[Rfam]
RNA: bZIP non canonical Hac1/Xbp1 intron
Nucleotides: 073
Stems, first nucleotide, its partner, number of pairs: 001073007009065005021039006047059003
Number, partner (000 for none) and nucleotide at each position: 001073c002072a003071c004070u005069u006068c007067c008000c009065c010064c011063g012062a013061c014000u015000c016000g017000a018000c019000a020000c021039a022038a023037c024036a025035u026034c027000c028000u029000g030000c031000a032000g033000a034026g035025a036024u037023g038022u039021u040000g041000u042000g043000c044000c045000a046000a047059g048058g049057c050000c051000u052000g053000c054000a055000g056000u057049g058048u059047c060000g061013g062012u063011c064010g065009g066000c067007g068006g069005a070004a071003g072002u073001g